A member of the RNA family "Actinobacillus sRNA 08" from Bibersteinia trehalosi, 262 nucleotides long. The family's RNA type in Rfam is small RNA.
RNA sequence: ACUUUACAAGACUGUGGGUUGUCUAUAUAAUCCGCAGUUCUUUUUGGCUGAAAAGCCAAUGAUGGUGCUUGCCUCUCAAGCCCCGUCCAAGACCGUAGGCGAAAUCAUAUCUAGAUUUCUUAAUUAAACCUACGUAGAUGGUGAACAGACAGAAUUUUCUGCUUCUGGACACCUUAGGCUCAAAAAUUAUCGUGUAAGCGGUUCUAUUUUUGGGGUUUUUUGUAAAUUCCACGCAAGUGGAGUGUAUCAGGAGCUAAACCAA
Numbered sequence: 001a002c003u004u005u006a007c008a009a010g011a012c013u014g015u016g017g018g019u020u021g022u023c024u025a026u027a028u029a030a031u032c033c034g035c036a037g038u039u040c041u042u043u044u045u046g047g048c049u050g051a052a053a054a055g056c057c058a059a060u061g062a063u064g065g066u067g068c069u070u071g072c073c074u075c076u077c078a079a080g081c082c083c084c085g086u087c088c089a090a091g092a093c094c095g096u097a098g099g100c101g102a103a104a105u106c107a108u109a110u111c112u113a114g115a116u117u118u119c120u121u122a123a124u125u126a127a128a129c130c131u132a133c134g135u136a137g138a139u140g141g142u143g144a145a146c147a148g149a150c151a152g153a154a155u156u157u158u159c160u161g162c163u164u165c166u167g168g169a170c171a172c173c174u175u176a177g178g179c180u181c182a183a184a185a186a187u188u189a190u191c192g193u194g195u196a197a198g199c200g201g202u203u204c205u206a207u208u209u210u211u212g213g214g215g216u217u218u219u220u221u222g223u224a225a226a227u228u229c230c231a232c233g234c235a236a237g238u239g240g241a242g243u244g245u246a247u248c249a250g251g252a253g254c255u256a257a258a259c260c261a262a
Stems, first nucleotide, its partner, number of pairs: 003258004008042003011038012045058005061087005067081005094134006101119006140173004146167004150161004179214009189202005215254006222247003226243007
Pairs were carried over by alignment from the consensus structure, which was predicted with RNAfold. A reference for the family is Rossi et al. (2016), "A computational strategy for the search of regulatory small RNAs in Actinobacillus pleuropneumoniae", RNA. About the family: Arrc stands for Actinobacillus pleuropneumoniae Regulatory RNA Candidate. TargetRNA2 was used for the predictions. sufI gene target may be involved in stress resistance.